[Rfam]
RNA sequence: UUGCAAGUGCAGGGCCAUAGCAGAAGUGCCCAUGGCACAGCCUGUCAGAUUCCAACAACUGCAAAUUCUGCU
Dot-bracket structure: ............[[[...((((((((((.......))).]]]...(((.(......).)))....)))))))